[Rfam]
Rfam assigns this 75-nucleotide sequence from Alligator sinensis to the family "Mammalian CPEB3 ribozyme".
RNA sequence: CUUGCAAGUUUGGGGCCAUAGCAGAAGCACUUAUGGUGCAACCAGUCAGAUUCCAAUGAAUCUGUGAAUUCUGUU
Numbered sequence: 001c002u003u004g005c006a007a008g009u010u011u012g013g014g015g016c017c018a019u020a021g022c023a024g025a026a027g028c029a030c031u032u033a034u035g036g037u038g039c040a041a042c043c044a045g046u047c048a049g050a051u052u053c054c055a056a057u058g059a060a061u062c063u064g065u066g067a068a069u070u071c072u073g074u075u
Base pairs, nucleotide, nucleotide: 015042020075021074022073023072024071025070026069027039028038029037047064048063049062050061051060052059053058
Dot-bracket structure: ..............[....((((((((((.......)))..]....(((((((....)))))))....)))))))
About the family: The mammalian CPEB3 ribozyme is a self cleaving RNA located in the second intron of the CPEB3 gene which belongs to a family of genes regulating messenger RNA polyadenylation.